[Rfam]
This 71-nucleotide RNA sequence from Saccharomyces cerevisiae belongs to the Rfam family "tRNA". The family's RNA type in Rfam is transfer RNA. Rfam links the family to the GO term triplet codon-amino acid adaptor activity. The base pairs follow the family's consensus structure, which is taken from published work.
RNA sequence: AUAUCUUUAAUUUAAUGGUAAAAUAUUAGAAUACGAAUCUAAUUAUAUAGGUUCAAAUCCUAUAAGAUAUU
Numbered sequence: 001a002u003a004u005c006u007u008u009a010a011u012u013u014a015a016u017g018g019u020a021a022a023a024u025a026u027u028a029g030a031a032u033a034c035g036a037a038u039c040u041a042a043u044u045a046u047a048u049a050g051g052u053u054c055a056a057a058u059c060c061u062a063u064a065a066g067a068u069a070u071u
Base pairs, nucleotide, nucleotide: 001070002069003068004067005066006065007064010024011023012022013021026042027041028040029039030038047063048062049061050060051059